[Rfam]
Vault RNA: a 106-nucleotide RNA sequence from Myotis davidii. By type it is a non-coding RNA gene. Rfam's curators write: This family of RNAs are found as part of the enigmatic vault ribonucleoprotein complex. The complex consists of a major vault protein (MVP), two minor vault proteins (VPARP and TEP1), and several small untranslated RNA molecules. It has been suggested that the vault complex is involved in drug resistance. The family's consensus secondary structure is taken from published work. Taxonomically the source falls in Myotis (Eukaryota, Chordata, Sarcopterygii, Laurasiatheria).
RNA sequence: GAGCUGGCUUUAGCUCAGCUGUCCCUUCUUCCUGUCCAGUCUUCGCUUGCCAACCACUCUUGCUUGCCAGGGUGGUUCCAGACCAGGGGCACCCUCCAGCCCUUUA
Numbered sequence: 001g002a003g004c005u006g007g008c009u010u011u012a013g014c015u016c017a018g019c020u021g022u023c024c025c026u027u028c029u030u031c032c033u034g035u036c037c038a039g040u041c042u043u044c045g046c047u048u049g050c051c052a053a054c055c056a057c058u059c060u061u062g063c064u065u066g067c068c069a070g071g072g073u074g075g076u077u078c079c080a081g082a083c084c085a086g087g088g089g090c091a092c093c094c095u096c097c098a099g100c101c102c103u104u105u106a
Base pairs, nucleotide, nucleotide: 003100004099005098006097007096013090014089015088016087019086020085021084026081027080